[Rfam]
Background: This 120-nucleotide sequence from Rhamnella rubrinervis belongs to the Rfam family "Small nucleolar RNA snoR104". On this family, see Marker et al., Curr Biol 2002: "Experimental RNomics: identification of 140 candidates for small non-messenger RNAs in the plant Arabidopsis thaliana".

RNA sequence: GGGGAGCAUCCAAAAGUUGAGAUGCAACCUGAUACAAUCUUCCCACAGAAAAGCCUCUGUCGUUUUCCUGCUUGCAGUACUUGAGCAAGUACAGCAAGUCUCGGACUGUCAGAGACAUAU
Numbered sequence: 001g002g003g004g005a006g007c008a009u010c011c012a013a014a015a016g017u018u019g020a021g022a023u024g025c026a027a028c029c030u031g032a033u034a035c036a037a038u039c040u041u042c043c044c045a046c047a048g049a050a051a052a053g054c055c056u057c058u059g060u061c062g063u064u065u066u067c068c069u070g071c072u073u074g075c076a077g078u079a080c081u082u083g084a085g086c087a088a089g090u091a092c093a094g095c096a097a098g099u100c101u102c103g104g105a106c107u108g109u110c111a112g113a114g115a116c117a118u119a120u
Stems, first nucleotide, its partner, number of pairs: 001030003006025005056113003070099006077092001079090003

A search with the family's covariance model found it, with a score of 92 bits.
It is annotated as an H/ACA-box small nucleolar RNA.
Pairs were carried over by alignment from the consensus structure, which was predicted with WAR.